[Rfam]
RNA: mir-156 microRNA precursor family
RNA sequence: GUGACAGAAGAGAGUGAGCACACGUGGUUGUUUCCUUGCAUAAAUGAUGCCUAUGCUUGGAGCUACGCGUGCUCACUUCUCUCUCUGUCAC
Numbered sequence: 001g002u003g004a005c006a007g008a009a010g011a012g013a014g015u016g017a018g019c020a021c022a023c024g025u026g027g028u029u030g031u032u033u034c035c036u037u038g039c040a041u042a043a044a045u046g047a048u049g050c051c052u053a054u055g056c057u058u059g060g061a062g063c064u065a066c067g068c069g070u071g072c073u074c075a076c077u078u079c080u081c082u083c084u085c086u087g088u089c090a091c
Base pairs, nucleotide, nucleotide: 001091002090003089004088005087006086007085008084010081011080012079013077014076015075016074017073018072019071020070021069023067024066025065